[Rfam]
RNA sequence: CUGGACCUGCGCGACUGGCGAGGGUGGUCAACCACCGGGGAGCGCUGUCAGCUGGAGCAUCGUCCGCCUGGGUGCUCCUC
Numbered sequence: 001c002u003g004g005a006c007c008u009g010c011g012c013g014a015c016u017g018g019c020g021a022g023g024g025u026g027g028u029c030a031a032c033c034a035c036c037g038g039g040g041a042g043c044g045c046u047g048u049c050a051g052c053u054g055g056a057g058c059a060u061c062g063u064c065c066g067c068c069u070g071g072g073u074g075c076u077c078c079u080c
Stems, first nucleotide, its partner, number of pairs: 004049002007047001009045004015039002017068004024035004057075005

A member of the RNA family "ZMP/ZTP riboswitch aptamer (pfl RNA motif)" from Micromonospora avicenniae, 80 nucleotides long. Rfam links the family to the GO terms regulation of purine nucleotide biosynthetic process and one-carbon metabolic process.